The family of this 188-nucleotide RNA sequence is "drz-agam-2-2 ribozyme". Gene Ontology term of the family: catalytic activity. The literature on the family includes a 2009 paper in Science by Webb et al., "Widespread occurrence of self-cleaving ribozymes".
[Rfam]
RNA sequence: CCCAGUUCCGGGGCCGUUCACUGGAUCCGAAGCCUCUAGAAGGAUAAUAUAGGCACUCCAUACCCUACUCCGACUCAAUACGUCCCCGUCGUACAGAAUGGUAACAUAUCUCUCCAAAUAUCUGAGCUUGGGUAUACGGGGAAACCCAACCCCUUGGGAAGAUUGGGUAUAUGGCUAAAUUGAGCGGA
Numbered sequence: 001c002c003c004a005g006u007u008c009c010g011g012g013g014c015c016g017u018u019c020a021c022u023g024g025a026u027c028c029g030a031a032g033c034c035u036c037u038a039g040a041a042g043g044a045u046a047a048u049a050u051a052g053g054c055a056c057u058c059c060a061u062a063c064c065c066u067a068c069u070c071c072g073a074c075u076c077a078a079u080a081c082g083u084c085c086c087c088g089u090c091g092u093a094c095a096g097a098a099u100g101g102u103a104a105c106a107u108a109u110c111u112c113u114c115c116a117a118a119u120a121u122c123u124g125a126g127c128u129u130g131g132g133u134a135u136a137c138g139g140g141g142a143a144a145c146c147c148a149a150c151c152c153c154u155u156g157g158g159a160a161g162a163u164u165g166g167g168u169a170u171a172u173g174g175c176u177a178a179a180u181u182g183a184g185c186g187g188a
Stems, first nucleotide, its partner, number of pairs: 011099001014096001016094002023065002025057001027053002069188004074184006080092003084101002105173005111167002114165001120163004128149006151158002